[Rfam]
Source information: This 102-nucleotide sequence from Bacillus sp. V5-8f belongs to the Rfam family "Purine riboswitch aptamer". Its family is annotated with purine nucleobase biosynthetic process in the Gene Ontology.
Nucleotides: 102
Stems, first nucleotide, its partner, number of pairs: 018088001020086006029049007058078001060076005
Number, partner (000 for none) and nucleotide at each position: 001000a002000u003000c004000g005000a006000a007000a008000u009000a010000a011000c012000u013000a014000a015000a016000a017000u018088c019000a020086c021085u022084c023083g024082u025081a026000u027000a028000a029049u030048c031047u032046u033045g034044g035043a036000a037000a038000u039000a040000c041000g042000g043035u044034c045033c046032a047031a048030g049029a050000g051000u052000c053000u054000c055000u056000a057000c058078c059000g060076a061075a062074c063073u064072a065000c066000c067000g068000u069000a070000a071000a072064u073063a074062g075061u076060u077000g078058g079000a080000c081025u082024a083023c084022g085021a086020g087000a088018g089000a090000u091000g092000a093000a094000c095000g096000c097000a098000a099000u100000u101000u102000c
A search with the family's covariance model found it, with a score of 87 bits.